[Rfam]
Nucleotides: 157
Stems, first nucleotide, its partner, number of pairs: 013032005018026001020025001033114015056098002059088003064083006
Number, partner (000 for none) and nucleotide at each position: 001000g002000a003000u004000a005000u006000c007000u008000a009000g010000a011000g012000u013032g014031g015030a016029u017028u018026u019000g020025c021000c022000a023000g024000a025020g026018a027000a028017a029016a030015u031014c032013c033114g034113g035112g036111a037110c038109a039108c040107c041106c042105a043104g044103u045102u046101a047100a048000a049000u050000u051000u052000g053000a054000a055000u056098u057097u058000c059088a060087g061086a062000c063000a064083a065082a066081c067080a068079a069078g070000a071000a072000a073000u074000a075000a076000a077000a078069c079068u080067u081066g082065u083064u084000u085000g086061u087060c088059u089000g090000a091000a092000a093000u094000u095000c096000a097057a098056a099000u100047u101046u102045a103044a104043c105042u106041g107040g108039g109038u110037g111036u112035c113034u114033u115000a116000a117000u118000u119000u120000u121000u122000g123000a124000c125000a126000u127000c128000u129000u130000u131000a132000u133000u134000u135000a136000u137000u138000c139000a140000u141000a142000u143000a144000c145000c146000a147000u148000a149000a150000a151000u152000u153000u154000a155000a156000c157000c
Annotation
Rfam assigns this 157-nucleotide RNA sequence to the family "rncO". A search with the family's covariance model found it, with a score of 47 bits. The family's RNA type in Rfam is cis-regulatory element. This family represents a bacterial regulatory element (rncO) found in the rnc leader sequence. The rnc operon is negatively auto-regulated by transcript stability. rnc, the first gene in the operon codes for RNase III which cleaves the long rncO stem II leading to transcript degradation and a reduction in translation. Its family is annotated with regulation of mRNA stability in the Gene Ontology. The base pairs follow the family's consensus structure, which is taken from published work.